[Rfam]
RNA sequence: GAGUGUUACAGCUCUUUUAGAAUUUGUCUAGCAGGGUUUCCAGUCCUUACUGGAAGACAACCCCAC
Numbered sequence: 001g002a003g004u005g006u007u008a009c010a011g012c013u014c015u016u017u018u019a020g021a022a023u024u025u026g027u028c029u030a031g032c033a034g035g036g037u038u039u040c041c042a043g044u045c046c047u048u049a050c051u052g053g054a055a056g057a058c059a060a061c062c063c064c065a066c
Base pairs, nucleotide, nucleotide: 034063035062036061037056038055039054040053041052042051043050044049
RNA: U7 small nuclear RNA
Organism: Felis catus